Small nucleolar RNA SNORA33: a 125-nucleotide RNA sequence from Jaculus jaculus. The family's consensus secondary structure was predicted with PFOLD. It is annotated as an H/ACA-box small nucleolar RNA. A search with the family's covariance model found it, with a score of 80 bits. NCBI's taxonomy places the organism under Eukaryota, Metazoa, Craniata, Glires, Jaculus.

[Rfam]
RNA sequence: AUCCACUUAAUUGCUCAUCUGAACGUAUUUCUGCAGACACUUAAGAGAAAUCUAGCAAUAGUGAUGCCAUAUGCUAGCCUUAGGGACAACUGAAGUCAUUAAGGUCCCUGAAAAUGGCUACAGUA
Numbered sequence: 001a002u003c004c005a006c007u008u009a010a011u012u013g014c015u016c017a018u019c020u021g022a023a024c025g026u027a028u029u030u031c032u033g034c035a036g037a038c039a040c041u042u043a044a045g046a047g048a049a050a051u052c053u054a055g056c057a058a059u060a061g062u063g064a065u066g067c068c069a070u071a072u073g074c075u076a077g078c079c080u081u082a083g084g085g086a087c088a089a090c091u092g093a094a095g096u097c098a099u100u101a102a103g104g105u106c107c108c109u110g111a112a113a114a115u116g117g118c119u120a121c122a123g124u125a
Stems, first nucleotide, its partner, number of pairs: 001053001011036004066118004077105007085097003
Rfam links the family to the GO terms nucleolus and RNA processing. ACA33 is a member of the H/ACA class of snoRNA that guide the sites of modification of uridines to pseudouridines.